[Rfam]
RNA sequence: GGGAUGUGAUGAAGAACCAUUGGUCCGUGUUUCUGAUCAUCAGUGAUGAGUAAUACACCAUAAUUCUGAUCCC
Numbered sequence: 001g002g003g004a005u006g007u008g009a010u011g012a013a014g015a016a017c018c019a020u021u022g023g024u025c026c027g028u029g030u031u032u033c034u035g036a037u038c039a040u041c042a043g044u045g046a047u048g049a050g051u052a053a054u055a056c057a058c059c060a061u062a063a064u065u066c067u068g069a070u071c072c073c
Stems, first nucleotide, its partner, number of pairs: 001073004
The family of this 73-nucleotide RNA sequence from Miscanthus lutarioriparius is "Small nucleolar RNA SNORD18". Pairs were carried over by alignment from the consensus structure, which was predicted with PFOLD. Taxonomically the source falls in Miscanthus (Eukaryota, Spermatophyta, Andropogonodae, Saccharinae). The family has 16 seed sequences and 2,622 matches in Rfam 15.1. A search with the family's covariance model found it, with a score of 44 bits. The literature on the family includes a 1993 paper in Nucleic Acids Res by Prislei et al., "Two different snoRNAs are encoded in introns of amphibian and human L1 ribosomal protein genes".